The family of this 90-nucleotide sequence from Neogobius melanostomus is "mir-15 microRNA precursor family". This family represents the related mir-15a and mir-15b sequences. In humans miR-15a and miR-16 are clustered within 0.5 kb at 13q14. This region has been shown to be deleted in more than half of B cell chronic lymphocytic leukaemias (CLL). Its family is annotated with miRNA-mediated post-transcriptional gene silencing and RISC complex in the Gene Ontology. The match comes from Rfam's covariance-model search (62 bits).
[Rfam]
RNA sequence: GGCCGCCGCACUUUAGCAGCACGUAAAUAUUGGAGUAACGAUUGUGACUCCAGCCUCCAGUAUUCCCCGUGCUGCUGAAUCACAGCUGAC
Numbered sequence: 001g002g003c004c005g006c007c008g009c010a011c012u013u014u015a016g017c018a019g020c021a022c023g024u025a026a027a028u029a030u031u032g033g034a035g036u037a038a039c040g041a042u043u044g045u046g047a048c049u050c051c052a053g054c055c056u057c058c059a060g061u062a063u064u065c066c067c068c069g070u071g072c073u074g075c076u077g078a079a080u081c082a083c084a085g086c087u088g089a090c
Base pairs, nucleotide, nucleotide: 001090003088005086006085013078014077015076016075017074018073019072020071021070022069023068026064027063028062029061030060031059032058033057034056035055